[Rfam]
Description: The record is a 159-nucleotide RNA sequence from Streptomyces sp. MZ04, which matches "Streptomyces sRNA scr5239" in Rfam. A reference for the family is Vockenhuber and Suess (2012), "Streptomyces coelicolor sRNA scr5239 inhibits agarase expression by direct base pairing to the dagA coding region", Microbiology. The base pairs follow the family's consensus structure, which is taken from published work. NCBI's taxonomy places the organism under Bacteria, Bacillati, Actinomycetes, Streptomycetaceae, Streptomyces. Rfam links the family to the GO terms negative regulation of translation and mRNA binding.
RNA sequence: CAUCCGCCCUUCCCGCACAGGAGGGCGGACCGAGGAACCAGCACUAUCUGCCCUGACUGUGCCGGAUCCUCCGAUCGGCCGCCGGUACCGCACAUUCCGGUGGUCGUGUUCCUGAAGGGCUGCGGUGCCGAGGGUGGGUUGAGGGUCCCGCCCUGGCGC
Numbered sequence: 001c002a003u004c005c006g007c008c009c010u011u012c013c014c015g016c017a018c019a020g021g022a023g024g025g026c027g028g029a030c031c032g033a034g035g036a037a038c039c040a041g042c043a044c045u046a047u048c049u050g051c052c053c054u055g056a057c058u059g060u061g062c063c064g065g066a067u068c069c070u071c072c073g074a075u076c077g078g079c080c081g082c083c084g085g086u087a088c089c090g091c092a093c094a095u096u097c098c099g100g101u102g103g104u105c106g107u108g109u110u111c112c113u114g115a116a117g118g119g120c121u122g123c124g125g126u127g128c129c130g131a132g133g134g135u136g137g138g139u140u141g142a143g144g145g146u147c148c149c150g151c152c153c154u155g156g157c158g159c
Stems, first nucleotide, its partner, number of pairs: 003029004008024005032071005038065002041062001043060002045056001076106006084098002110127001112125002117121001132153007